[Rfam]
RNA sequence: GUUCAUCUUCGGGGUAGGGUGCAAGUCCCAACCGGCAGUAAUUUGAGCCUGCGACCUAUUUAUUAUCCAAUAAAUAGCUGAUCUAGUGUAAAUCUAGAGCCGACAGUAUAGUCUGGAUGGGAGAAGAUGGAG
Numbered sequence: 001g002u003u004c005a006u007c008u009u010c011g012g013g014g015u016a017g018g019g020u021g022c023a024a025g026u027c028c029c030a031a032c033c034g035g036c037a038g039u040a041a042u043u044u045g046a047g048c049c050u051g052c053g054a055c056c057u058a059u060u061u062a063u064u065a066u067c068c069a070a071u072a073a074a075u076a077g078c079u080g081a082u083c084u085a086g087u088g089u090a091a092a093u094c095u096a097g098a099g100c101c102g103a104c105a106g107u108a109u110a111g112u113c114u115g116g117a118u119g120g121g122a123g124a125a126g127a128u129g130g131a132g
Base pairs, nucleotide, nucleotide: 003130004129005128006127007126008125009124010123017029018028019027031112032111033102034101035052036051037050038049047100048099056077057076082098083097084096085095086094104115105114106113
RNA: FMN riboswitch aptamer (RFN element)